[Rfam]
Nucleotides: 046
Stems, first nucleotide, its partner, number of pairs: 010025004032043001
Number, partner (000 for none) and nucleotide at each position: 001000a002000u003000u004000c005000c006000u007000u008000c009000u010025g011024u012023c013022g014000u015000g016000u017000a018000u019000c020000c021000u022013c023012g024011a025010u026000u027000g028000a029000u030000g031000c032043g033000c034000c035000u036000c037000a038000g039000a040000u041000c042000a043032u044000u045000c046000a
Description:
Plastid-ycf3 group II-D1 intron: a 46-nucleotide sequence from Musa balbisiana. Rfam 15.1 lists 1,488 matches to the family in 559 species. NCBI's taxonomy places the organism under Eukaryota, Embryophyta, Magnoliopsida, Petrosaviidae, Musa. Its family is annotated with Group II intron splicing in the Gene Ontology. Plastid rpl16 is a non-coding RNA (ncRNA) recognised in plastids. It was recognised in and intronic region of a ribosome rpl16 gene. It scores 56 bits against the family's covariance model. On this family, see Richter et al., Plant Commun 2023: "Retrograde signaling in plants: A critical review focusing on the GUN pathway and beyond".